[Rfam]
RNA: Small nucleolar RNA SNORD70
RNA sequence: GUGUGUGUUGUCAAUGAUGUAUCUGUUAAUCUGAAUACAGUAUGUGGUCAAUACACAGUAAUUUCGUCACUACCACUGAGACGACACUCAU
Numbered sequence: 001g002u003g004u005g006u007g008u009u010g011u012c013a014a015u016g017a018u019g020u021a022u023c024u025g026u027u028a029a030u031c032u033g034a035a036u037a038c039a040g041u042a043u044g045u046g047g048u049c050a051a052u053a054c055a056c057a058g059u060a061a062u063u064u065c066g067u068c069a070c071u072a073c074c075a076c077u078g079a080g081a082c083g084a085c086a087c088u089c090a091u
Base pairs, nucleotide, nucleotide: 001091002090003089005087006086007085008084009083010082011081012080